The record is a 57-nucleotide RNA from Actinomadura rubrisoli, which matches "Actino-pnp RNA" in Rfam.
Lineage of the source: Bacteria > Bacillati > Actinomycetota > Streptosporangiales > Actinomadura.
The family's consensus secondary structure is taken from published work.
It scores 64 bits against the family's covariance model.
By type it is a cis-regulatory element.
RNA sequence: GCCGGUCCUCGGUAGUGGCCUCCGGACUCGAUCCGGAUGCUUCGAUCGAAGACCGGC
Numbered sequence: 001g002c003c004g005g006u007c008c009u010c011g012g013u014a015g016u017g018g019c020c021u022c023c024g025g026a027c028u029c030g031a032u033c034c035g036g037a038u039g040c041u042u043c044g045a046u047c048g049a050a051g052a053c054c055g056g057c
Stems, first nucleotide, its partner, number of pairs: 001057007009049005017041003021037006